Source information
Shown here is a 117-nucleotide sequence from Limosilactobacillus gastricus, a member of the family "Enterococcus sRNA 68 (Lacto-3 RNA)". For this family Rfam cites "Whole-genome mapping of 5' RNA ends in bacteria by tagged sequencing: a comprehensive view in Enterococcus faecalis" (Innocenti et al., RNA, 2015).
RNA sequence: UACGAUGAGCCGAGAGGUCGGUAACCAACCCCAAUUGGUUACGUUGAUUUUUUCGGAAAGGGGACACGAAACCUACCGGAUUGUAGGGUGUUCGAUUCAAGGGUGAUUGUGAACUAG
Numbered sequence: 001u002a003c004g005a006u007g008a009g010c011c012g013a014g015a016g017g018u019c020g021g022u023a024a025c026c027a028a029c030c031c032c033a034a035u036u037g038g039u040u041a042c043g044u045u046g047a048u049u050u051u052u053u054c055g056g057a058a059a060g061g062g063g064a065c066a067c068g069a070a071a072c073c074u075a076c077c078g079g080a081u082u083g084u085a086g087g088g089u090g091u092u093c094g095a096u097u098c099a100a101g102g103g104u105g106a107u108u109g110u111g112a113a114c115u116a117g
Base pairs, nucleotide, nucleotide: 017048018047019046020045021042022041023040024039025038026037027036028035063092064091065090066089067088072087073086074085075084076083104117106115108113
The source organism's lineage runs through Bacteria, Bacillati, Lactobacillaceae, Limosilactobacillus and Limosilactobacillus gastricus. It is annotated as a small RNA.